Record summary:
dinG RNA: an 84-nucleotide sequence from Enterocloster clostridioformis. Rfam classes the family as a small RNA. The source organism's lineage runs through Bacteria, Bacillota, Lachnospirales, Lachnospiraceae and Enterocloster clostridioformis.
[Rfam]
RNA sequence: CAUGGUACUUCUGCCGAGAACCGGCAGCCCUGAAAAACGGGAAAACGCACACCCCUGUUUGAGAAAGAACAGGGGGCGGCUUUU
Numbered sequence: 001c002a003u004g005g006u007a008c009u010u011c012u013g014c015c016g017a018g019a020a021c022c023g024g025c026a027g028c029c030c031u032g033a034a035a036a037a038c039g040g041g042a043a044a045a046c047g048c049a050c051a052c053c054c055c056u057g058u059u060u061g062a063g064a065a066a067g068a069a070c071a072g073g074g075g076g077c078g079g080c081u082u083u084u
Base pairs, nucleotide, nucleotide: 011027012026013025014024015023028041029040030039031036042084043083044082045081047080048079054073055072056071057070058069